The record is a 76-nucleotide sequence from Polypterus senegalus, which matches "mir-92 microRNA precursor family" in Rfam. Its family is annotated with RISC complex and miRNA-mediated post-transcriptional gene silencing in the Gene Ontology. For this family Rfam cites "miRNPs: a novel class of ribonucleoproteins containing numerous microRNAs" (Mourelatos et al., Genes Dev, 2002). The family is grouped with related families in Rfam's "mir-92 microRNA precursor clan".
RNA sequence: UUUGUUCCAUAGGCUGGAUUAUUGCAGUGCCUUUGUUACUCAAAGGCACUGCAAUAAUCCAGCCUAUGGAACAAAU
Numbered sequence: 001u002u003u004g005u006u007c008c009a010u011a012g013g014c015u016g017g018a019u020u021a022u023u024g025c026a027g028u029g030c031c032u033u034u035g036u037u038a039c040u041c042a043a044a045g046g047c048a049c050u051g052c053a054a055u056a057a058u059c060c061a062g063c064c065u066a067u068g069g070a071a072c073a074a075a076u
Base pairs, nucleotide, nucleotide: 004072005071006070009067010066011065012064013063014062016060017059018058019057021055022054024052025051026050027049028048029047030046031045032044
This family represents the microRNA precursor mir-92. Human miR-92 has two predicted hairpin precursor sequences: mir-92-1 on chromosome 13 and mir-92-2 on chromosome X. miR-92 has also been cloned from mouse embryonic stem cells. The mature sequence is excised from the 3' arm of the hairpin.